[Rfam]
RNA sequence: AUUUCCAGAAAAACGAUGGAUAGUGUCCUUUAGUCCAUCGCUUUUCUAGGAUUUC
Numbered sequence: 001a002u003u004u005c006c007a008g009a010a011a012a013a014c015g016a017u018g019g020a021u022a023g024u025g026u027c028c029u030u031u032a033g034u035c036c037a038u039c040g041c042u043u044u045u046c047u048a049g050g051a052u053u054u055c
Base pairs, nucleotide, nucleotide: 001053003051004050005049007047008046009045010044011043012042014040015039016038017037018036019035020034021033